[Rfam]
RNA sequence: CGGAGAUCGGCGACGGACGAUGGCCUCGCCAACCUGGUCAGGGCCGGAAGGCAGCAGCCACAACGAGAUCACCCUCGGGUCGCCCGCCGGUCUCCACCU
Numbered sequence: 001c002g003g004a005g006a007u008c009g010g011c012g013a014c015g016g017a018c019g020a021u022g023g024c025c026u027c028g029c030c031a032a033c034c035u036g037g038u039c040a041g042g043g044c045c046g047g048a049a050g051g052c053a054g055c056a057g058c059c060a061c062a063a064c065g066a067g068a069u070c071a072c073c074c075u076c077g078g079g080u081c082g083c084c085c086g087c088c089g090g091u092c093u094c095c096a097c098c099u
Stems, first nucleotide, its partner, number of pairs: 004093005009084006015076001017075001019073001021071002025067004035060004043052003

A member of the RNA family "Bacterial small signal recognition particle RNA" from Caulobacter radicis, 99 nucleotides long. About the family: The signal recognition particle (SRP) is a universally conserved ribonucleoprotein involved in the co-translational targeting of proteins to membranes. For this family Rfam cites "SRPDB: Signal Recognition Particle Database" (Rosenblad et al., Nucleic Acids Res, 2003).